[Rfam]
RNA sequence: AGUAAUAGUAAAUACUUUAAUAAGAACUUAAAGGACUGAAGUAGGGAAAGGUUCUAUAUAAAUAGUAGUUAGAUAUAGGUUAGUUAAUCCUAAGCUAUAGGGAAGUUCUAUUUUAAAGAGGCACUUAUGCCCUAUAUAGCGAAAGAGAAGCUAGUUAAUAUUCUAACACCUAGAUAUAGGUUUUACGUAGUAAUAUAACUAAAUGUAGAGAUAAUAGCAGGGGCUCUAGGUAGAGUUCUCUUUUCUUUUUAAUAGUUUAUUACCUUAAAAUCAGUUUGUUUAGAGCUAAGGUUUAACAGCUAGAAAAGCUUAGCACUUCUAUUAAGUCUAGUGCGCUCUUAAUAUCCUUUAAAAAUCUAUAGGAAGGAAUAAUUCUUACACUAAGUUAUACUUAUAACUACAGUAGGUCUUUAAAGUGAAUAGCUUCUAGUUAA
Numbered sequence: 001a002g003u004a005a006u007a008g009u010a011a012a013u014a015c016u017u018u019a020a021u022a023a024g025a026a027c028u029u030a031a032a033g034g035a036c037u038g039a040a041g042u043a044g045g046g047a048a049a050g051g052u053u054c055u056a057u058a059u060a061a062a063u064a065g066u067a068g069u070u071a072g073a074u075a076u077a078g079g080u081u082a083g084u085u086a087a088u089c090c091u092a093a094g095c096u097a098u099a100g101g102g103a104a105g106u107u108c109u110a111u112u113u114u115a116a117a118g119a120g121g122c123a124c125u126u127a128u129g130c131c132c133u134a135u136a137u138a139g140c141g142a143a144a145g146a147g148a149a150g151c152u153a154g155u156u157a158a159u160a161u162u163c164u165a166a167c168a169c170c171u172a173g174a175u176a177u178a179g180g181u182u183u184u185a186c187g188u189a190g191u192a193a194u195a196u197a198a199c200u201a202a203a204u205g206u207a208g209a210g211a212u213a214a215u216a217g218c219a220g221g222g223g224c225u226c227u228a229g230g231u232a233g234a235g236u237u238c239u240c241u242u243u244u245c246u247u248u249u250u251a252a253u254a255g256u257u258u259a260u261u262a263c264c265u266u267a268a269a270a271u272c273a274g275u276u277u278g279u280u281u282a283g284a285g286c287u288a289a290g291g292u293u294u295a296a297c298a299g300c301u302a303g304a305a306a307a308g309c310u311u312a313g314c315a316c317u318u319c320u321a322u323u324a325a326g327u328c329u330a331g332u333g334c335g336c337u338c339u340u341a342a343u344a345u346c347c348u349u350u351a352a353a354a355a356u357c358u359a360u361a362g363g364a365a366g367g368a369a370u371a372a373u374u375c376u377u378a379c380a381c382u383a384a385g386u387u388a389u390a391c392u393u394a395u396a397a398c399u400a401c402a403g404u405a406g407g408u409c410u411u412u413a414a415a416g417u418g419a420a421u422a423g424c425u426u427c428u429a430g431u432u433a434a
Base pairs, nucleotide, nucleotide: 015033016032017031018030019029020028034432035431036430037429043412044411045410046409049392050391054078055077056076057075058074059073063071064070085388086387087386090145094140095139097111098110100109101108102107119133120132121131150167152165153164154163171383172382173381175380177378178377179376180374187196188195189194204361205360206359207358208357209356214345215344216343219340220339221338222337223336224335226331227330228329229249230248232246233245234244253302254301255300256299257298262292263291264290265289266288267287271283273281274280309326310325311324312323313322315320398407399406414426415425416424417423
The record is a 434-nucleotide part of an RNA from Colletotrichum gloeosporioides, which matches "Eukaryotic large subunit ribosomal RNA" in Rfam. The literature on the family includes a 2001 paper in Science by Yusupov et al., "Crystal structure of the ribosome at 5.5 A resolution".